[Rfam]
RNA sequence: UGCAUCCUUCGGGGCAGGGUGAAAUUCCCGACCGGCGGUGAUAAAAGCUUUUAAGCUUUUUUAGCCCGUGACCCGCAUUGGCGGAACGCCUUUGCGGUGGAUCUGGUGAAAAUCCAGAGCCGACAGUAUAGUCUGGAUGGGAGAAGGAUCAC
Numbered sequence: 001u002g003c004a005u006c007c008u009u010c011g012g013g014g015c016a017g018g019g020u021g022a023a024a025u026u027c028c029c030g031a032c033c034g035g036c037g038g039u040g041a042u043a044a045a046a047g048c049u050u051u052u053a054a055g056c057u058u059u060u061u062u063a064g065c066c067c068g069u070g071a072c073c074c075g076c077a078u079u080g081g082c083g084g085a086a087c088g089c090c091u092u093u094g095c096g097g098u099g100g101a102u103c104u105g106g107u108g109a110a111a112a113u114c115c116a117g118a119g120c121c122g123a124c125a126g127u128a129u130a131g132u133c134u135g136g137a138u139g140g141g142a143g144a145a146g147g148a149u150c151a152c
Stems, first nucleotide, its partner, number of pairs: 004149007017029003031132002033122002035069004064120002073097004102118005124135003